A member of the RNA family "mir-142 microRNA precursor family" from Monodelphis domestica, 74 nucleotides long. The organism belongs to Monodelphis, within Eukaryota.
RNA sequence: GCAGUCACCCAUAAAGUAGAAAGCACUACUAACAGCAAUGUAGGGUGUAGUGUUUCCUACUUUAUGGAUGAGUG
Numbered sequence: 001g002c003a004g005u006c007a008c009c010c011a012u013a014a015a016g017u018a019g020a021a022a023g024c025a026c027u028a029c030u031a032a033c034a035g036c037a038a039u040g041u042a043g044g045g046u047g048u049a050g051u052g053u054u055u056c057c058u059a060c061u062u063u064a065u066g067g068a069u070g071a072g073u074g
Stems, first nucleotide, its partner, number of pairs: 010066010022054008